[Rfam]
RNA sequence: GAAGCGCUCUACACCGAAGGGCUAGCGACCCGCGGUGACCCCGAGCCGUGCGUCGACGACCUGAGAGGGCGUGGCGAAGCGUCGGUAGGGGCACGUGCAGGCCGGGCUAUUGAGCCGCGUAAUCAGCGUGUUCGGGGUGCCCACACGGUCCAAGAUGUGGAAGGCAACACCGGCGGCAGCGUUAUCGCGAGUUGUCGUCGGGCCCCGCGCGGUCAGAGAACC
Numbered sequence: 001g002a003a004g005c006g007c008u009c010u011a012c013a014c015c016g017a018a019g020g021g022c023u024a025g026c027g028a029c030c031c032g033c034g035g036u037g038a039c040c041c042c043g044a045g046c047c048g049u050g051c052g053u054c055g056a057c058g059a060c061c062u063g064a065g066a067g068g069g070c071g072u073g074g075c076g077a078a079g080c081g082u083c084g085g086u087a088g089g090g091g092c093a094c095g096u097g098c099a100g101g102c103c104g105g106g107c108u109a110u111u112g113a114g115c116c117g118c119g120u121a122a123u124c125a126g127c128g129u130g131u132u133c134g135g136g137g138u139g140c141c142c143a144c145a146c147g148g149u150c151c152a153a154g155a156u157g158u159g160g161a162a163g164g165c166a167a168c169a170c171c172g173g174c175g176g177c178a179g180c181g182u183u184a185u186c187g188c189g190a191g192u193u194g195u196c197g198u199c200g201g202g203c204c205c206c207g208c209g210c211g212g213u214c215a216g217a218g219a220a221c222c
Base pairs, nucleotide, nucleotide: 012037013036014035015034016033019031020030021029023190025188026187039091040090041089042088045086046085047084048083049081050080051076052075053074054073055072057071058070060069061068062067111216112214114213115212116211117210118209119208133207134206135205136204137203138202139165140164141163144159145158146157147156170201171200172199173198174197175196176195177194178193179192180191
Group II catalytic intron D1-D4-6: a 222-nucleotide RNA from Streptomyces brasiliensis. The base pairs follow the family's consensus structure. From the family's description: Group II introns are found in rRNA, tRNA and mRNA of organelles in fungi, plants and protists, and also in mRNA in bacteria. Lineage of the source: Bacteria > Actinomycetota > Kitasatosporales > Streptomycetaceae > Streptomyces.